[Rfam]
RNA sequence: GAAAUUACUAAUAAUUUACCUCAUAUAUAAUGGGAAUACGGCCCAUAAGUUUCUACCCGACAACCUUAAAUUGACGGACUAUGAGGAAAGUGAAUAUGACC
Numbered sequence: 001g002a003a004a005u006u007a008c009u010a011a012u013a014a015u016u017u018a019c020c021u022c023a024u025a026u027a028u029a030a031u032g033g034g035a036a037u038a039c040g041g042c043c044c045a046u047a048a049g050u051u052u053c054u055a056c057c058c059g060a061c062a063a064c065c066u067u068a069a070a071u072u073g074a075c076g077g078a079c080u081a082u083g084a085g086g087a088a089a090g091u092g093a094a095u096a097u098g099a100c101c
Stems, first nucleotide, its partner, number of pairs: 019086007028048001030046005057077003061073003

The record is a 101-nucleotide RNA from Bacillus yapensis, which matches "Purine riboswitch aptamer" in Rfam. About the family: Riboswitches are metabolite binding domains within certain messenger RNAs that serve as precision sensors for their corresponding targets. The organism belongs to Bacillus, within Bacteria.